RNA: Small nucleolar RNA R21
Organism: Brassica carinata
RNA sequence: AAUCCCAAUGAUGAUGAAAUAAUAAAAAUGUUAAAAGUAGUGACUGAUUAUAUAUUGACGAAUAAUCAAAUUCUGAGGGAUU
Numbered sequence: 001a002a003u004c005c006c007a008a009u010g011a012u013g014a015u016g017a018a019a020u021a022a023u024a025a026a027a028a029u030g031u032u033a034a035a036a037g038u039a040g041u042g043a044c045u046g047a048u049u050a051u052a053u054a055u056u057g058a059c060g061a062a063u064a065a066u067c068a069a070a071u072u073c074u075g076a077g078g079g080a081u082u
Stems, first nucleotide, its partner, number of pairs: 001082006